[Rfam]
RNA sequence: GCAUUUGCGCUCCGCUUCUCCGAUCCCUAUAUCGCUCCCGUCGGGUUCACCCGACUAUGGCGAUAAAUUGCGGCGUAUAAUAGACGCAGCGGACCCGGGGGCAGUACCCGGCGGCUCCACCAUCGCAGCUGACGUAAGGGAUUCGCCAUGGCGAGUUUCGUGCGACCAGCGUCGCUGAUGGGGCCGAACCAGGAUCGACGUGUGUUGAAAAGCGCUGUUUUCGUUCGGAAUGGGACCACCGUGACGGCCCAUAUAUACAAGUGCCAACGAUAACGAGGCUCUUGCGAUUGCCGCGUAAUUUGAACCUCACGGUUUAAAUUACAUCGGACAAAAGCGCGGUUGGGCUGCACCGGGCAACAGAAGCAGACACC
Numbered sequence: 001g002c003a004u005u006u007g008c009g010c011u012c013c014g015c016u017u018c019u020c021c022g023a024u025c026c027c028u029a030u031a032u033c034g035c036u037c038c039c040g041u042c043g044g045g046u047u048c049a050c051c052c053g054a055c056u057a058u059g060g061c062g063a064u065a066a067a068u069u070g071c072g073g074c075g076u077a078u079a080a081u082a083g084a085c086g087c088a089g090c091g092g093a094c095c096c097g098g099g100g101g102c103a104g105u106a107c108c109c110g111g112c113g114g115c116u117c118c119a120c121c122a123u124c125g126c127a128g129c130u131g132a133c134g135u136a137a138g139g140g141a142u143u144c145g146c147c148a149u150g151g152c153g154a155g156u157u158u159c160g161u162g163c164g165a166c167c168a169g170c171g172u173c174g175c176u177g178a179u180g181g182g183g184c185c186g187a188a189c190c191a192g193g194a195u196c197g198a199c200g201u202g203u204g205u206u207g208a209a210a211a212g213c214g215c216u217g218u219u220u221u222c223g224u225u226c227g228g229a230a231u232g233g234g235a236c237c238a239c240c241g242u243g244a245c246g247g248c249c250c251a252u253a254u255a256u257a258c259a260a261g262u263g264c265c266a267a268c269g270a271u272a273a274c275g276a277g278g279c280u281c282u283u284g285c286g287a288u289u290g291c292c293g294c295g296u297a298a299u300u301u302g303a304a305c306c307u308c309a310c311g312g313u314u315u316a317a318a319u320u321a322c323a324u325c326g327g328a329c330a331a332a333a334g335c336g337c338g339g340u341u342g343g344g345c346u347g348c349a350c351c352g353g354g355c356a357a358c359a360g361a362a363g364c365a366g367a368c369a370c371c
Stems, first nucleotide, its partner, number of pairs: 040055005059225005070218007085204003089201003095111005112186007226241003231251003236247002337352004343368001345366004
The family of this 371-nucleotide sequence from Sphingomonas carotinifaciens is "Alphaproteobacteria transfer-messenger RNA".
Pairs were carried over by alignment from the consensus structure, which is taken from published work.
Lineage of the source: Bacteria > Pseudomonadati > Alphaproteobacteria > Sphingomonadaceae > Sphingomonas.